The family of this 309-nucleotide sequence from Trema orientale is "Plant signal recognition particle RNA".
RNA sequence: GCCGAGCUGGGUCACGCUAGCUUGUAACUCAAGUGAGGGCACUAAGAUGAUCGGACUGCAGUUCGGCCCACUUGGUAGGGUUUGAUGUAGGUGCAUUUCGCUGGCUUGCCCGAUCCAAGUCAUGAGUUGGGCCAUGUGACUCGAGCGAAGGCUUGAGCCGCGUGGUUCCUAGAGAGGAGGGCACCGCGUGAGGCUGGUUUCACAGAGCAGCGCAAACCUCCCGCUCAUGGCAGUGGAAGGAUAACGAGCCUGGCGCACCCUCAGCCCAUGUUGCCGAGUAGGCCCGUCCUUGGUUGGACAAUCAUCUUU
Numbered sequence: 001g002c003c004g005a006g007c008u009g010g011g012u013c014a015c016g017c018u019a020g021c022u023u024g025u026a027a028c029u030c031a032a033g034u035g036a037g038g039g040c041a042c043u044a045a046g047a048u049g050a051u052c053g054g055a056c057u058g059c060a061g062u063u064c065g066g067c068c069c070a071c072u073u074g075g076u077a078g079g080g081u082u083u084g085a086u087g088u089a090g091g092u093g094c095a096u097u098u099c100g101c102u103g104g105c106u107u108g109c110c111c112g113a114u115c116c117a118a119g120u121c122a123u124g125a126g127u128u129g130g131g132c133c134a135u136g137u138g139a140c141u142c143g144a145g146c147g148a149a150g151g152c153u154u155g156a157g158c159c160g161c162g163u164g165g166u167u168c169c170u171a172g173a174g175a176g177g178a179g180g181g182c183a184c185c186g187c188g189u190g191a192g193g194c195u196g197g198u199u200u201c202a203c204a205g206a207g208c209a210g211c212g213c214a215a216a217c218c219u220c221c222c223g224c225u226c227a228u229g230g231c232a233g234u235g236g237a238a239g240g241a242u243a244a245c246g247a248g249c250c251u252g253g254c255g256c257a258c259c260c261u262c263a264g265c266c267c268a269u270g271u272u273g274c275c276g277a278g279u280a281g282g283c284c285c286g287u288c289c290u291u292g293g294u295u296g297g298a299c300a301a302u303c304a305u306c307u308u309u
Stems, first nucleotide, its partner, number of pairs: 001040003004023007028037003044308008053299001056296001059292002061289001064286003068281001070279008078267005084261001087259001091256001093254002101252001103250006110240002114237004119231009129168010140157007169174001176221005186213004194205003

Pairs were carried over by alignment from the consensus structure, which is taken from published work. Taxonomically the source falls in Trema (Eukaryota, Euphyllophyta, Mesangiospermae, Gunneridae). It is annotated as a non-coding RNA gene. Its family is annotated with signal recognition particle, endoplasmic reticulum targeting and SRP-dependent cotranslational protein targeting to membrane, signal sequence recognition in the Gene Ontology.